A member of the RNA family "SAM riboswitch aptamer (S box leader)" from Gemella haemolysans, 103 nucleotides long. Rfam's curators put it in the seed alignment.
[Rfam]
RNA sequence: UACUUAUCAAGAGUGAGUGAGGGAUAAGGCCCGGUGAACUCCAGCAACCUAAUCAAUUGAUUAAGGUGCUUUCCUUAGCAAAGUUUACUUUGAGCGAUGAGGU
Numbered sequence: 001u002a003c004u005u006a007u008c009a010a011g012a013g014u015g016a017g018u019g020a021g022g023g024a025u026a027a028g029g030c031c032c033g034g035u036g037a038a039c040u041c042c043a044g045c046a047a048c049c050u051a052a053u054c055a056a057u058u059g060a061u062u063a064a065g066g067u068g069c070u071u072u073c074c075u076u077a078g079c080a081a082a083g084u085u086u087a088c089u090u091u092g093a094g095c096g097a098u099g100a101g102g103u
Base pairs, nucleotide, nucleotide: 003101004100005099006098007097008096013042015041016040017039021032022031023030028076029075043070044069045068046067048066049065050063051062052061053060079092080091081090082089083088